[Rfam]
The record is a 116-nucleotide sequence from Cricetulus griseus, which matches "Small nucleolar RNA SNORA24" in Rfam. Taxonomically the source falls in Cricetulus (Eukaryota, Eumetazoa, Deuterostomia, Dipnotetrapodomorpha). A search with the family's covariance model found it, with a score of 74 bits. ACA24 is a member of the H/ACA class of snoRNA that guide the sites of modification of uridines to pseudouridines. By type it is an H/ACA-box small nucleolar RNA. Rfam links the family to the GO terms nucleolus and RNA processing.
RNA sequence: CUUCUUGCACCUUUGGGAUCUGCUGUCUAUAUCAGUCUUUCUUCCUAGCUGUUGAAGAGCAUGAUCUUGUUUUUUGGCAAAGCUAUCUCAGAUUUUGUCCUGCACAAGUAACAUUU
Numbered sequence: 001c002u003u004c005u006u007g008c009a010c011c012u013u014u015g016g017g018a019u020c021u022g023c024u025g026u027c028u029a030u031a032u033c034a035g036u037c038u039u040u041c042u043u044c045c046u047a048g049c050u051g052u053u054g055a056a057g058a059g060c061a062u063g064a065u066c067u068u069g070u071u072u073u074u075u076g077g078c079a080a081a082g083c084u085a086u087c088u089c090a091g092a093u094u095u096u097g098u099c100c101u102g103c104a105c106a107a108g109u110a111a112c113a114u115u116u
Stems, first nucleotide, its partner, number of pairs: 002055002006051002015041004020035003024031001068113004074107003077103003083091002